[Rfam]
Rfam assigns this 98-nucleotide RNA sequence from Streptococcus ferus to the family "PreQ1-II (pre queuosine) riboswitch aptamer". On this family, see Weinberg et al., Nucleic Acids Res 2007: "Identification of 22 candidate structured RNAs in bacteria using the CMfinder comparative genomics pipeline". The family's consensus secondary structure is taken from published work. From the family's description: preQ1-II riboswitch was first reported for Weinberg et al. 2007 it was recognised in Streptococcaceae and Lactococcus families in 5' untranslated regions of genes of a membrane protein classified as COG4708 or DUF988. Meyers et al. 2008 confirm that preQ1-II recognise the queuosine (Q) precursor pre-queuosine 1 (preQ1). Q is a hyper modified nucleoside present in some anticodons in tRNAs (Try, Asn, Asp and His). A search with the family's covariance model found it, with a score of 80 bits.
RNA sequence: UAUGCUAUACUGGGGAAGUUGUUUUAGCAACCCUUGACACUUCCUACCUUUAGUCAAGCAUAUUAUAAGCGGUUUAGCCGCCAAAGGAGAAUCAAAUG
Numbered sequence: 001u002a003u004g005c006u007a008u009a010c011u012g013g014g015g016a017a018g019u020u021g022u023u024u025u026a027g028c029a030a031c032c033c034u035u036g037a038c039a040c041u042u043c044c045u046a047c048c049u050u051u052a053g054u055c056a057a058g059c060a061u062a063u064u065a066u067a068a069g070c071g072g073u074u075u076a077g078c079c080g081c082c083a084a085a086g087g088a089g090a091a092u093c094a095a096a097u098g
Stems, first nucleotide, its partner, number of pairs: 018031005033058006045089001047087004069081004